[Rfam]
PhotoRC-II RNA: a 93-nucleotide sequence. The sequence is in the family's curated seed alignment.

RNA sequence: UAAUUCUUGUAGCACCCCUUAAACCAAGACCUAUAGGGUGCAUAAAAACGUCUUUCAUAUCCUCGCUAAGGGUGCGAGGAAAUAGUAACUCCA
Numbered sequence: 001u002a003a004u005u006c007u008u009g010u011a012g013c014a015c016c017c018c019u020u021a022a023a024c025c026a027a028g029a030c031c032u033a034u035a036g037g038g039u040g041c042a043u044a045a046a047a048a049c050g051u052c053u054u055u056c057a058u059a060u061c062c063u064c065g066c067u068a069a070g071g072g073u074g075c076g077a078g079g080a081a082a083u084a085g086u087a088a089c090u091c092c093a
Stems, first nucleotide, its partner, number of pairs: 013040005020035002026054005060080007
By type it is a cis-regulatory element.